The family of this 87-nucleotide RNA sequence from Marchantia polymorpha is "Small nucleolar RNA R64/Z200 family". It scores 48 bits against the family's covariance model. Rfam links the family to the GO terms RNA processing and nucleolus. For this family Rfam cites "Experimental RNomics: identification of 140 candidates for small non-messenger RNAs in the plant Arabidopsis thaliana" (Marker et al., Curr Biol, 2002). By type it is a C/D-box small nucleolar RNA.

RNA sequence: UCUCUGCAGUGAUGAUCAAUCUUUGCAUGUUAGACUAUGGAGAUGGUUCUUACCGUCCAUGAAUAACAACUUAUUUCUGAGCAGAGA
Numbered sequence: 001u002c003u004c005u006g007c008a009g010u011g012a013u014g015a016u017c018a019a020u021c022u023u024u025g026c027a028u029g030u031u032a033g034a035c036u037a038u039g040g041a042g043a044u045g046g047u048u049c050u051u052a053c054c055g056u057c058c059a060u061g062a063a064u065a066a067c068a069a070c071u072u073a074u075u076u077c078u079g080a081g082c083a084g085a086g087a
Base pairs, nucleotide, nucleotide: 001087002086003085004084005083006082007081042057043056044055045054046053047052